The family of this 99-nucleotide RNA from Thalassospira mesophila is "Glycine riboswitch aptamer". Taxonomically the source falls in Thalassospira (Bacteria, Pseudomonadati, Rhodospirillales, Thalassospiraceae). The family is grouped with related families in Rfam's "Glycine riboswitch clan".
[Rfam]
RNA sequence: CACACCGCAAUGGGAGAGACCGGCCGGGCAACGUUCCGGCAGGCGCCGAAGGAGCAAUUCACCCCGAACACUCUCAGGCACAUGGACCGUUGCGGAUUG
Numbered sequence: 001c002a003c004a005c006c007g008c009a010a011u012g013g014g015a016g017a018g019a020c021c022g023g024c025c026g027g028g029c030a031a032c033g034u035u036c037c038g039g040c041a042g043g044c045g046c047c048g049a050a051g052g053a054g055c056a057a058u059u060c061a062c063c064c065c066g067a068a069c070a071c072u073c074u075c076a077g078g079c080a081c082a083u084g085g086a087c088c089g090u091u092g093c094g095g096a097u098u099g
Stems, first nucleotide, its partner, number of pairs: 006094008020043002023040006045079003048075002052073003059067001